[Rfam]
RNA: FMN riboswitch aptamer (RFN element)
RNA sequence: AUUAUCCUUCGGGGUCGGGUGAAAGUCCCAACCGGCGGUGAUUCGUUUAUAAACGUAAGCCCGCGACCCGGUUGCCUUUUUGGCAAACGGUUGAUUCAGUGAGAAGCUGAAGCCGACAGUACAGUCUGGAUGGGAGAAGGAUGAA
Numbered sequence: 001a002u003u004a005u006c007c008u009u010c011g012g013g014g015u016c017g018g019g020u021g022a023a024a025g026u027c028c029c030a031a032c033c034g035g036c037g038g039u040g041a042u043u044c045g046u047u048u049a050u051a052a053a054c055g056u057a058a059g060c061c062c063g064c065g066a067c068c069c070g071g072u073u074g075c076c077u078u079u080u081u082g083g084c085a086a087a088c089g090g091u092u093g094a095u096u097c098a099g100u101g102a103g104a105a106g107c108u109g110a111a112g113c114c115g116a117c118a119g120u121a122c123a124g125u126c127u128g129g130a131u132g133g134g135a136g137a138a139g140g141a142u143g144a145a
Stems, first nucleotide, its partner, number of pairs: 003143008017029003031125002033115002035064004059113002068090002095111005117128003